Shown here is a 105-nucleotide RNA sequence from Prunus avium, a member of the family "MIR6274 microRNA precursor family". The family has 2 seed sequences and 342 matches in Rfam 15.1. Gene Ontology terms of the family: miRNA-mediated post-transcriptional gene silencing and RISC complex. Taxonomically the source falls in Prunus (Eukaryota, Viridiplantae, Pentapetalae, Rosaceae).
RNA sequence: GGAUAACAUUGUUUUGCUAUCCCUAACCAAUAACAUAAUGACACGUGAAAAAGUUAUCCUACGUGUCAUUGCAUUAUUGGUUGGGGAUAGCAAAAAUUGUUAUCC
Number, nucleotide and partner (000 for none) at each position: 001g000002g104003a103004u102005a101006a000007c000008a000009u000010u000011g000012u095013u094014u093015u092016g091017c090018u089019a088020u087021c000022c085023c084024u083025a082026a081027c080028c079029a078030a077031u076032a075033a074034c000035a000036u071037a070038a069039u068040g067041a066042c065043a064044c063045g062046u061047g060048a000049a000050a057051a000052a000053g000054u000055u000056a000057u050058c000059c000060u047061a046062c045063g044064u043065g042066u041067c040068a039069u038070u037071g036072c000073a000074u033075u032076a031077u030078u029079g028080g027081u026082u025083g024084g023085g022086g000087a020088u019089a018090g017091c016092a015093a014094a013095a012096a000097u000098u000099g000100u000101u005102a004103u003104c002105c000